Notes:
Shown here is a 111-nucleotide sequence from Actinocrispum wychmicini, a member of the family "TPP riboswitch aptamer (THI element)". NCBI's taxonomy places the organism under Bacteria, Bacillati, Actinomycetes, Pseudonocardiales, Actinocrispum. It scores 66 bits against the family's covariance model.
[Rfam]
RNA sequence: GCUGGUCCGCACGGGAGCCUGGCGUCACCGGGCUGAGAGGGGACUUGGAGAGUCCCGACCGUCGAACCUGAUCCGGGUCAUGCCGGCGCAGGGAGCGAGUGGUGUCAUUGG
Numbered sequence: 001g002c003u004g005g006u007c008c009g010c011a012c013g014g015g016a017g018c019c020u021g022g023c024g025u026c027a028c029c030g031g032g033c034u035g036a037g038a039g040g041g042g043a044c045u046u047g048g049a050g051a052g053u054c055c056c057g058a059c060c061g062u063c064g065a066a067c068c069u070g071a072u073c074c075g076g077g078u079c080a081u082g083c084c085g086g087c088g089c090a091g092g093g094a095g096c097g098a099g100u101g102g103u104g105u106c107a108u109u110g111g
Stems, first nucleotide, its partner, number of pairs: 006099001008097003011062004017033005040056007067092004073086004